mir-1460 microRNA precursor family: a 91-nucleotide RNA from Crocodylus porosus. Lineage of the source: Eukaryota > Chordata > Sarcopterygii > Dipnotetrapodomorpha > Crocodylus. Its family is annotated with RISC complex and miRNA-mediated post-transcriptional gene silencing in the Gene Ontology. The base pairs follow the family's consensus structure, which was predicted with RNAalifold.
[Rfam]
RNA sequence: ACUCCCUACAGACAAUUUAUUGCUGCCCUCCCAGAGCGGCCCCAUGCUUUAUUCACCGUGGGGAAGGGGUAAUAAAUUGCCUGUGGGAAGG
Numbered sequence: 001a002c003u004c005c006c007u008a009c010a011g012a013c014a015a016u017u018u019a020u021u022g023c024u025g026c027c028c029u030c031c032c033a034g035a036g037c038g039g040c041c042c043c044a045u046g047c048u049u050u051a052u053u054c055a056c057c058g059u060g061g062g063g064a065a066g067g068g069g070u071a072a073u074a075a076a077u078u079g080c081c082u083g084u085g086g087g088a089a090g091g
Base pairs, nucleotide, nucleotide: 002090003089005087006086007085008084009083010082011081013079014078015077016076017075018074019073020072021071022070023069024068026067027066029064030063031062032061036056038054039053